[Rfam]
RNA sequence: AUACUAUACAUUGGGGUCAUUGUAGAAGCGUGCUUGUCGCGACCCCUGCCAGCCCUUUUCACUGCUGCAAUUCUACA
Numbered sequence: 001a002u003a004c005u006a007u008a009c010a011u012u013g014g015g016g017u018c019a020u021u022g023u024a025g026a027a028g029c030g031u032g033c034u035u036g037u038c039g040c041g042a043c044c045c046c047u048g049c050c051a052g053c054c055c056u057u058u059u060c061a062c063u064g065c066u067g068c069a070a071u072u073c074u075a076c077a
Stems, first nucleotide, its partner, number of pairs: 013046006021077007028040003050067004056061001
Dot-bracket structure: ............[[[[[[..((((((((((.......)))]]]]]]...((((..(....)..))))...)))))))
The record is a 77-nucleotide RNA from Parnassius apollo, which matches "Mammalian CPEB3 ribozyme" in Rfam. The family's consensus secondary structure is taken from published work. A search with the family's covariance model found it, with a score of 48 bits. The source organism's lineage runs through Eukaryota, Panorpida, Neolepidoptera, Heteroneura and Parnassius. The mammalian CPEB3 ribozyme is a self cleaving RNA located in the second intron of the CPEB3 gene which belongs to a family of genes regulating messenger RNA polyadenylation. This ribozyme is highly conserved and found only in mammals. The CPEB3 ribozyme is structurally and biochemically related to the human hepatitis delta virus (HDV) ribozyme and the HDV ribozyme is proposed to have arisen from the human transcriptome. There is currently only one other known self cleaving ribozyme in mammals, the CoTC motif.